The family of this 208-nucleotide sequence from Streptomyces olivoverticillatus is "Streptomyces RNA 1601".

RNA sequence: AGCGACCGGUCGGACACUCGUGUGCCCGACCCACAAGUGGAGGCUCCGAUCUCCCACCUCGCAGACCCCCGGGUCGGCAGGUCUCCGGUCGGCAGAACUCAUCGUUCCGUACGGACGAUGAGAAGCUGUCCAGCGCGCCUCGCGGUUCACCGCGGCGGUGCUCCGGUGUGUGAGGAGCUCUGCCUGUGACCCGUCCGAGGCGUUUUUU
Numbered sequence: 001a002g003c004g005a006c007c008g009g010u011c012g013g014a015c016a017c018u019c020g021u022g023u024g025c026c027c028g029a030c031c032c033a034c035a036a037g038u039g040g041a042g043g044c045u046c047c048g049a050u051c052u053c054c055c056a057c058c059u060c061g062c063a064g065a066c067c068c069c070c071g072g073g074u075c076g077g078c079a080g081g082u083c084u085c086c087g088g089u090c091g092g093c094a095g096a097a098c099u100c101a102u103c104g105u106u107c108c109g110u111a112c113g114g115a116c117g118a119u120g121a122g123a124a125g126c127u128g129u130c131c132a133g134c135g136c137g138c139c140u141c142g143c144g145g146u147u148c149a150c151c152g153c154g155g156c157g158g159u160g161c162u163c164c165g166g167u168g169u170g171u172g173a174g175g176a177g178c179u180c181u182g183c184c185u186g187u188g189a190c191c192c193g194u195c196c197g198a199g200g201c202g203u204u205u206u207u208u
Stems, first nucleotide, its partner, number of pairs: 004090006012027002028083004035059001037057004041052002061078002064075004091130005099121007137201006143193003151188003154184005160178005

Background: Identified by deep sequencing of transcriptome at the end of exponential growth phase. Appears longer on northern blot than sequencing transcript. Streptomyces specific.